Annotation: The family of this 96-nucleotide sequence from Salvelinus namaycush is "Small nucleolar RNA SNORD16". On this family, see Fragapane et al., EMBO J 1993: "A novel small nucleolar RNA (U16) is encoded inside a ribosomal protein intron and originates by processing of the pre-mRNA". It scores 57 bits against the family's covariance model. Clan: SNORD16 clan. The family's RNA type in Rfam is C/D-box small nucleolar RNA.

[Rfam]
RNA sequence: UGCAGUGAUGUGUAAUUUGCGUCCUACAUUGAACAGUGGCGUUAUGCCUGAUGUCGUAUGCUGGCACAAGUGGCUGACGAACCUAGCGUCUGAGCA
Dot-bracket structure: (((................((((.....(((....(((((((........)))))....)).....)))......))))..............)))